[Rfam]
RNA sequence: GAAUGAGAUGAUGACUUCAAUCAAAUUUGAUAGCCGAUAUGAUGGCAAUUUAUCAUGUAUUAGCUCUAGCUGAUCAUUC
Numbered sequence: 001g002a003a004u005g006a007g008a009u010g011a012u013g014a015c016u017u018c019a020a021u022c023a024a025a026u027u028u029g030a031u032a033g034c035c036g037a038u039a040u041g042a043u044g045g046c047a048a049u050u051u052a053u054c055a056u057g058u059a060u061u062a063g064c065u066c067u068a069g070c071u072g073a074u075c076a077u078u079c
Stems, first nucleotide, its partner, number of pairs: 002078004029049001033046003
This 79-nucleotide sequence belongs to the Rfam family "Small nucleolar RNA Z102/R77". By type it is a C/D-box small nucleolar RNA. Gene Ontology terms of the family: nucleolus and RNA processing. Its Rfam clan is "SNORD44 clan".